Shown here is an 89-nucleotide RNA sequence from Papilio xuthus, a member of the family "mir-317 microRNA precursor family".
RNA sequence: GCUAUUGAACGACCGGGUGCCACGCUGUGCUCUCUCGGGAAUUAGGUCGAGUGAACACAGCUGGUGGUAUCUCAGUUGUUCCCUAGUCU
Numbered sequence: 001g002c003u004a005u006u007g008a009a010c011g012a013c014c015g016g017g018u019g020c021c022a023c024g025c026u027g028u029g030c031u032c033u034c035u036c037g038g039g040a041a042u043u044a045g046g047u048c049g050a051g052u053g054a055a056c057a058c059a060g061c062u063g064g065u066g067g068u069a070u071c072u073c074a075g076u077u078g079u080u081c082c083c084u085a086g087u088c089u
Stems, first nucleotide, its partner, number of pairs: 008080005015073001016071002019068002022065002025060003029056001031054002

Pairs were carried over by alignment from the consensus structure, which was predicted with RNAalifold. The literature on the family includes a 2007 paper in Genome Res by Stark et al., "Systematic discovery and characterization of fly microRNAs using 12 Drosophila genomes". Rfam links the family to the GO terms RISC complex and miRNA-mediated post-transcriptional gene silencing.